[Rfam]
RNA sequence: UGCUCUGUGAUUUUUGCCUUGAUAGGCAUAUACGCUAUUCUGAUUCAUAUCAUGAAUGGAUAAGUUUUGAAAGCUGAGAGCU
Numbered sequence: 001u002g003c004u005c006u007g008u009g010a011u012u013u014u015u016g017c018c019u020u021g022a023u024a025g026g027c028a029u030a031u032a033c034g035c036u037a038u039u040c041u042g043a044u045u046c047a048u049a050u051c052a053u054g055a056a057u058g059g060a061u062a063a064g065u066u067u068u069g070a071a072a073g074c075u076g077a078g079a080g081c082u
Base pairs, nucleotide, nucleotide: 002081003080004079005078
This 82-nucleotide sequence from Rosa chinensis belongs to the Rfam family "Small nucleolar RNA U54".
On this family, see Chen et al., Nucleic Acids Res 2003: "The high diversity of snoRNAs in plants: identification and comparative study of 120 snoRNA genes from Oryza sativa".
Its Rfam clan is "U54 clan".
Rfam describes the family as follows. U54 is a C/D box small nucleolar RNA, which acts as a methylation guide for 18S ribosomal RNA in plants.
The base pairs follow the family's consensus structure, which was predicted with PFOLD.